[Rfam]
RNA sequence: AAUCGGCGUACAACACCGGGGACUUGUCCCCACCGUGGUGCCGAGGGAAGCAAGCCUCAGUAACAGCAGCCUUUUUGGGCUGGAAAACUGAAAAAUAAAGUGUCGGGAGGGUUUGGUAGACCAGAAACGGUUCGAAGAAGCAGUGCCCG
Number, nucleotide and partner (000 for none) at each position: 001a000002a000003u044004c043005g042006g041007c040008g039009u000010a000011c038012a000013a036014c035015a000016c000017c000018g031019g030020g029021g028022a027023c000024u000025u000026g000027u022028c021029c020030c019031c018032a000033c000034c000035g014036u013037g000038g011039u008040g007041c006042c005043g004044a003045g000046g056047g055048a000049a000050g000051c000052a000053a000054g000055c047056c046057u091058c090059a089060g088061u087062a000063a000064c000065a000066g000067c082068a081069g080070c079071c078072u000073u000074u000075u000076u000077g000078g071079g070080c069081u068082g067083g000084a000085a000086a000087a061088c060089u059090g058091a057092a000093a000094a000095a000096u000097a000098a000099a000100g000101u000102g000103u000104c149105g148106g147107g146108a000109g000110g141111g000112u139113u138114u137115g000116g000117u000118a000119g132120a131121c130122c129123a000124g000125a000126a000127a000128c000129g122130g121131u120132u119133c000134g000135a000136a000137g114138a113139a112140g000141c110142a000143g000144u000145g000146c107147c106148c105149g104

Rfam assigns this 149-nucleotide RNA to the family "RT-3 RNA". The family's consensus secondary structure is taken from published work. Rfam classes the family as a small RNA.